[Rfam]
RNA sequence: GAAAACUUUCAUACAGCUUCUCGUAUAUGUGCAGGAAUAGGCCUGCAUGUCUCUACCCGAUCACCGGAAAUGAUCGGACUACGGGAAUAACGAAGCGGUCG
Numbered sequence: 001g002a003a004a005a006c007u008u009u010c011a012u013a014c015a016g017c018u019u020c021u022c023g024u025a026u027a028u029g030u031g032c033a034g035g036a037a038u039a040g041g042c043c044u045g046c047a048u049g050u051c052u053c054u055a056c057c058c059g060a061u062c063a064c065c066g067g068a069a070a071u072g073a074u075c076g077g078a079c080u081a082c083g084g085g086a087a088u089a090a091c092g093a094a095g096c097g098g099u100c101g
Stems, first nucleotide, its partner, number of pairs: 018087008029048007057077007
Dot-bracket structure: .................((((((((...(((((((......)))))))........(((((((.......)))))))..))))))))..............

Rfam assigns this 101-nucleotide sequence from Paenibacillus dendrobii to the family "Purine riboswitch aptamer". On this family, see Mandal et al., Cell 2003: "Riboswitches Control Fundamental Biochemical Pathways in Bacillus subtilis and Other Bacteria". Rfam links the family to the GO term purine nucleobase biosynthetic process. The source organism's lineage runs through Bacteria, Bacillati, Bacillota, Paenibacillaceae and Paenibacillus. A search with the family's covariance model found it, with a score of 76 bits.